[Rfam]
RNA sequence: GUAUCAAAAGGAAAUGGUGUUCUUCCUUACCCAACCGCUUUACAGAAGCUGAUGACGCCUGAUUGAGA
Numbered sequence: 001g002u003a004u005c006a007a008a009a010g011g012a013a014a015u016g017g018u019g020u021u022c023u024u025c026c027u028u029a030c031c032c033a034a035c036c037g038c039u040u041u042a043c044a045g046a047a048g049c050u051g052a053u054g055a056c057g058c059c060u061g062a063u064u065g066a067g068a
Stems, first nucleotide, its partner, number of pairs: 010026004016059006037049004
The family of this 68-nucleotide RNA from Chryseobacterium sp. P1-3 is "Fluoride riboswitch aptamer (crcB RNA motif)". The match comes from Rfam's covariance-model search (50 bits). The organism belongs to Chryseobacterium, within Bacteria. Gene Ontology terms of the family: response to fluoride and positive regulation of gene expression.